[Rfam]
RNA sequence: AGAAUUUGUCUAGCAGGUUUUCCAGUUUCUACUGGAAAACCCCA
Numbered sequence: 001a002g003a004a005u006u007u008g009u010c011u012a013g014c015a016g017g018u019u020u021u022c023c024a025g026u027u028u029c030u031a032c033u034g035g036a037a038a039a040c041c042c043c044a
Stems, first nucleotide, its partner, number of pairs: 016041011